[Rfam]
RNA sequence: AAUUUUAAUUUAAUGUUCACUUGUAUAAAUCUAACAAUAUGGAUUGGAUGUUUCUACAGAACUACCGUAAAUAGUUCUUUCCUAUAAGUACACUAAAUAUUACU
Numbered sequence: 001a002a003u004u005u006u007a008a009u010u011u012a013a014u015g016u017u018c019a020c021u022u023g024u025a026u027a028a029a030u031c032u033a034a035c036a037a038u039a040u041g042g043a044u045u046g047g048a049u050g051u052u053u054c055u056a057c058a059g060a061a062c063u064a065c066c067g068u069a070a071a072u073a074g075u076u077c078u079u080u081c082c083u084a085u086a087a088g089u090a091c092a093c094u095a096a097a098u099a100u101u102a103c104u
Stems, first nucleotide, its partner, number of pairs: 019089007029049006058080001059077006